A member of the RNA family "mir-160 microRNA precursor family" from Ricinus communis, 86 nucleotides long.
[Rfam]
RNA sequence: GCAUGCAUGGCUCCUUGCAUGCCAUCUGCGGAGACCACCAAGCUUCUGAUGAACUUCACAAAUGGCAUACAGGGAGCCAGGCACAC
Numbered sequence: 001g002c003a004u005g006c007a008u009g010g011c012u013c014c015u016u017g018c019a020u021g022c023c024a025u026c027u028g029c030g031g032a033g034a035c036c037a038c039c040a041a042g043c044u045u046c047u048g049a050u051g052a053a054c055u056u057c058a059c060a061a062a063u064g065g066c067a068u069a070c071a072g073g074g075a076g077c078c079a080g081g082c083a084c085a086c
Stems, first nucleotide, its partner, number of pairs: 001086001004083003008079007016071002019068006027060002

Background
The family's consensus secondary structure was predicted with PFOLD. The match comes from Rfam's covariance-model search (51 bits). The literature on the family includes a 2002 paper in Cell by Rhoades et al., "Prediction of plant microRNA targets".